[Rfam]
RNA sequence: CAAAUAUCAGUGAUGAGAAGUUUCAAUAAUUUAUCCUUGCACUUUGAUUGCGAGUGGAAAAGCAAAUGGGGAAUGGUAACUAUGAGAUACUA
Numbered sequence: 001c002a003a004a005u006a007u008c009a010g011u012g013a014u015g016a017g018a019a020g021u022u023u024c025a026a027u028a029a030u031u032u033a034u035c036c037u038u039g040c041a042c043u044u045u046g047a048u049u050g051c052g053a054g055u056g057g058a059a060a061a062g063c064a065a066a067u068g069g070g071g072a073a074u075g076g077u078a079a080c081u082a083u084g085a086g087a088u089a090c091u092a
Stems, first nucleotide, its partner, number of pairs: 003091001005089004
A member of the RNA family "Small nucleolar RNA snoR26" from Glycine max, 92 nucleotides long. The family's consensus secondary structure was predicted with WAR. Gene Ontology terms of the family: RNA processing and nucleolus. On this family, see Brown et al., RNA 2001: "Multiple snoRNA gene clusters from Arabidopsis". It is annotated as a C/D-box small nucleolar RNA.